[Rfam]
Nucleotides: 100
Base pairs, nucleotide, nucleotide: 018086019085020084021083022082023081024080025079029049030048031047032046033045034044035043059075060074061073062072063071
Number, partner (000 for none) and nucleotide at each position: 001000a002000a003000u004000g005000a006000a007000a008000u009000a010000g011000u012000a013000a014000u015000u016000u017000g018086u019085a020084u021083u022082c023081g024080u025079a026000u027000a028000u029049c030048c031047u032046c033045a034044g035043a036000a037000a038000u039000a040000u041000g042000g043035u044034u045033u046032g047031a048030g049029g050000g051000u052000c053000u054000c055000u056000a057000c058000a059075g060074g061073g062072a063071a064000c065000c066000g067000u068000a069000a070000a071063u072062u073061c074060c075059c076000g077000g078000c079025u080024a081023c082022g083021a084020a085019u086018a087000g088000g089000g090000c091000g092000g093000u094000u095000u096000u097000g098000g099000u100000a

Notes: A member of the RNA family "Purine riboswitch aptamer" from Brevibacillus brevis, 100 nucleotides long. It scores 78 bits against the family's covariance model. The literature on the family includes a 2004 paper in Nature by Batey et al., "Structure of a natural guanine-responsive riboswitch complexed with the metabolite hypoxanthine". NCBI's taxonomy places the organism under Bacteria, Bacilli, Caryophanales, Paenibacillaceae, Brevibacillus brevis.